[Rfam]
RNA sequence: GCAUGGACGAAUUCUGCAUUAGCUUUUCCCAGUAGCUAGUGCAGUCAGACACUGUGCAAGAACAUAGUCCCUUUUCACACAGGGAUUGGUAUGCCUUUUGUUUGGAAAUGGGCAUGCCUGUGAAAGUGGGAUACAU
Numbered sequence: 001g002c003a004u005g006g007a008c009g010a011a012u013u014c015u016g017c018a019u020u021a022g023c024u025u026u027u028c029c030c031a032g033u034a035g036c037u038a039g040u041g042c043a044g045u046c047a048g049a050c051a052c053u054g055u056g057c058a059a060g061a062a063c064a065u066a067g068u069c070c071c072u073u074u075u076c077a078c079a080c081a082g083g084g085a086u087u088g089g090u091a092u093g094c095c096u097u098u099u100g101u102u103u104g105g106a107a108a109u110g111g112g113c114a115u116g117c118c119u120g121u122g123a124a125a126g127u128g129g130g131a132u133a134c135a136u
Stems, first nucleotide, its partner, number of pairs: 001057006014044006070129002072126007088118009
This 136-nucleotide sequence from Nothocercus julius belongs to the Rfam family "Small nucleolar RNA SNORA15". Rfam classes the family as an H/ACA-box small nucleolar RNA. Rfam's curators write: ACA15 is a member of the H/ACA class of snoRNA that guide the sites of modification of uridines to pseudouridines. Taxonomically the source falls in Nothocercus (Eukaryota, Deuterostomia, Vertebrata, Sauria).